[Rfam]
RNA sequence: ACUAAGGGUAGAGGUGCAUUAUCUAUCAGUAACUGGCGGGAGGUGACCCCGAAGAACGUCAGUGAAAGGAGCUAAUGCCGAAGUAAGGCGGAUCUGUCAAAUCACCUUGCUGGGGUUGUCACCGAAAGGGAUAACACUGCCAUAGUAACUUACAAUUAACUAUGGAGCGCUACUGUGGGG
Numbered sequence: 001a002c003u004a005a006g007g008g009u010a011g012a013g014g015u016g017c018a019u020u021a022u023c024u025a026u027c028a029g030u031a032a033c034u035g036g037c038g039g040g041a042g043g044u045g046a047c048c049c050c051g052a053a054g055a056a057c058g059u060c061a062g063u064g065a066a067a068g069g070a071g072c073u074a075a076u077g078c079c080g081a082a083g084u085a086a087g088g089c090g091g092a093u094c095u096g097u098c099a100a101a102u103c104a105c106c107u108u109g110c111u112g113g114g115g116u117u118g119u120c121a122c123c124g125a126a127a128g129g130g131a132u133a134a135c136a137c138u139g140c141c142a143u144a145g146u147a148a149c150u151u152a153c154a155a156u157u158a159a160c161u162a163u164g165g166a167g168c169g170c171u172a173c174u175g176u177g178g179g180g
Stems, first nucleotide, its partner, number of pairs: 007174005016078006023071002032063007082111007090103002093100001112138002115135006122128001140165007

The record is a 180-nucleotide RNA sequence from Photobacterium halotolerans, which matches "Lysine riboswitch aptamer" in Rfam.
The family's consensus secondary structure is taken from published work.